Source information:
Rfam assigns this 134-nucleotide RNA sequence from Mastacembelus armatus to the family "Small nucleolar RNA SNORA31". Its family is annotated with RNA processing and nucleolus in the Gene Ontology. By type it is an H/ACA-box small nucleolar RNA. The match comes from Rfam's covariance-model search (61 bits). Rfam 15.1 lists 2,094 matches to the family in 626 species. Rfam's curators write: ACA31 (SNORA31) belongs to the H/ACA class of snoRNAs which are thought to guide the sites of modification of uridines to pseudouridines. Taxonomically the source falls in Mastacembelus (Eukaryota, Opisthokonta, Chordata, Acanthomorphata). The literature on the family includes a 2001 paper in EMBO J by Huttenhofer et al., "RNomics: an experimental approach that identifies 201 candidates for novel, small, non-messenger RNAs in mouse".
RNA sequence: UUGCAUCCACUGAUAGACCUGAAGCAGACUUCACCGGCUUUUGGGUUUGCAUAGAGAUGCUAAACUGAGUCUUCCUUGCACUUUCUGGCUGCUACGUUCUAUAGCAGCACAGAAUUAAAUGGAGGAAUACAUGU
Dot-bracket structure: ..(((((...((.((((((..((((.(.......).))))...))))))))....)))))............(((((......((((.(((((.........)))))..))))........)))))........
Numbered sequence: 001u002u003g004c005a006u007c008c009a010c011u012g013a014u015a016g017a018c019c020u021g022a023a024g025c026a027g028a029c030u031u032c033a034c035c036g037g038c039u040u041u042u043g044g045g046u047u048u049g050c051a052u053a054g055a056g057a058u059g060c061u062a063a064a065c066u067g068a069g070u071c072u073u074c075c076u077u078g079c080a081c082u083u084u085c086u087g088g089c090u091g092c093u094a095c096g097u098u099c100u101a102u103a104g105c106a107g108c109a110c111a112g113a114a115u116u117a118a119a120u121g122g123a124g125g126a127a128u129a130c131a132u133g134u
Stems, first nucleotide, its partner, number of pairs: 003060005011051002014049006022040004027035001073126005084113004089107005